RNA sequence: AGAUUCACCGGGUCGAUGCCCCGGGUGACGACGAGGUAGUCGCGCAGCGCGAUGCUGUGGCGGCCCUC
Numbered sequence: 001a002g003a004u005u006c007a008c009c010g011g012g013u014c015g016a017u018g019c020c021c022c023g024g025g026u027g028a029c030g031a032c033g034a035g036g037u038a039g040u041c042g043c044g045c046a047g048c049g050c051g052a053u054g055c056u057g058u059g060g061c062g063g064c065c066c067u068c
Stems, first nucleotide, its partner, number of pairs: 004063002008059001012029002016026002035056004040052005

The family of this 68-nucleotide RNA from Mycobacterium sinensis is "ASdes TB sRNA". The family's RNA type in Rfam is small RNA. On this family, see Arnvig and Young, Mol Microbiol 2009: "Identification of small RNAs in Mycobacterium tuberculosis". The source organism's lineage runs through Bacteria, Mycobacteriales, Mycobacteriaceae, Mycobacterium and Mycobacterium (subgen. Mycolicibacter).